[Rfam]
RNA sequence: UGGCACCUACGGGGGCCUUCACAUCAGGGUCCGCGUCAGUGGGCCCGCCAAGCAAACGGAAGAAGCUA
Numbered sequence: 001u002g003g004c005a006c007c008u009a010c011g012g013g014g015g016c017c018u019u020c021a022c023a024u025c026a027g028g029g030u031c032c033g034c035g036u037c038a039g040u041g042g043g044c045c046c047g048c049c050a051a052g053c054a055a056a057c058g059g060a061a062g063a064a065g066c067u068a
Base pairs, nucleotide, nucleotide: 002017003016004015006014007013008012027046028045029044030043031042032041033040
The family of this 68-nucleotide RNA from Loktanella sp. 3ANDIMAR09 is "L2-Alphaproteobacteria ribosomal protein leader". It scores 49 bits against the family's covariance model.